Rfam assigns this 53-nucleotide RNA sequence to the family "S4-Clostridia ribosomal protein leader". On this family, see Eckert and Weinberg, BMC Microbiol 2020: "Discovery of 20 novel ribosomal leader candidates in bacteria and archaea". Rfam classes the family as a cis-regulatory leader. The base pairs follow the family's consensus structure, which is taken from published work. Clan: Ribosomal Protein S4 Leader clan.

RNA sequence: GAAAGGUCAUGGAGACAUGGCUGGAUGCUUCACAUACCGGCAUCCCAAUUAGG
Number, nucleotide and partner (000 for none) at each position: 001g000002a000003a000004a000005g022006g021007u020008c019009a018010u017011g016012g000013a000014g000015a000016c011017a010018u009019g008020g007021c006022u005023g045024g044025a043026u042027g041028c040029u000030u000031c000032a000033c000034a000035u000036a000037c000038c000039g000040g028041c027042a026043u025044c024045c023046c000047a000048a000049u000050u000051a000052g000053g000